RNA sequence: UGGGUAGGUCAGAUGGUCGCGUGCGAGAGCAUGAGGAAAGUCCGGGCUCCAAAGGGUAAGGAUGCCGUGAUAACAUCCGGCGUAGGUAACUAUAGGGAAAGUGCAACAGAAACAUACCGCCGAAACGGGUAGUGCCGUGGUAAGGUUGAAAUGGUGAGGUAAGAGCUCACCGGCAAUGUGGAGACAUAUUGGCCGUGUAAACCCCAUCCGGAGCAAGGUCGGUGGGACAAAGGCGGCUACCCGCUGCCUCCCAAAUGGUGGACCGCAUGAGCGCACAGAGAUGCAGCGCCUAGAUAGAUGAUCAUCGAAUACAGAACCCGGCUUACAGACCUGCCCGUUUU
Numbered sequence: 001u002g003g004g005u006a007g008g009u010c011a012g013a014u015g016g017u018c019g020c021g022u023g024c025g026a027g028a029g030c031a032u033g034a035g036g037a038a039a040g041u042c043c044g045g046g047c048u049c050c051a052a053a054g055g056g057u058a059a060g061g062a063u064g065c066c067g068u069g070a071u072a073a074c075a076u077c078c079g080g081c082g083u084a085g086g087u088a089a090c091u092a093u094a095g096g097g098a099a100a101g102u103g104c105a106a107c108a109g110a111a112a113c114a115u116a117c118c119g120c121c122g123a124a125a126c127g128g129g130u131a132g133u134g135c136c137g138u139g140g141u142a143a144g145g146u147u148g149a150a151a152u153g154g155u156g157a158g159g160u161a162a163g164a165g166c167u168c169a170c171c172g173g174c175a176a177u178g179u180g181g182a183g184a185c186a187u188a189u190u191g192g193c194c195g196u197g198u199a200a201a202c203c204c205c206a207u208c209c210g211g212a213g214c215a216a217g218g219u220c221g222g223u224g225g226g227a228c229a230a231a232g233g234c235g236g237c238u239a240c241c242c243g244c245u246g247c248c249u250c251c252c253a254a255a256u257g258g259u260g261g262a263c264c265g266c267a268u269g270a271g272c273g274c275a276c277a278g279a280g281a282u283g284c285a286g287c288g289c290c291u292a293g294a295u296a297g298a299u300g301a302u303c304a305u306c307g308a309a310u311a312c313a314g315a316a317c318c319c320g321g322c323u324u325a326c327a328g329a330c331c332u333g334c335c336c337g338u339u340u341u
Base pairs, nucleotide, nucleotide: 001337002336003335004334005333006332007331008330009329010328012306013305014304015303016302017301018300020033021032022031023030024029038324039323040322042321043320044319045318046317047213048212049211050210055242056241060209061208062207063206064205065080066079067078069077070076081095082093083092084091085090096204097203101202102201103198104197105196117145118144119141120140121139125138126137127136128135153171154170155169156168157167158166173193174191175190176189177188178187179186180185217264218263219262220261223253224252225251226250227249233247234246235245236244237243271289272288273287274286276283277282
RNA: Bacterial RNase P class A
Organism: [Eubacterium] nodatum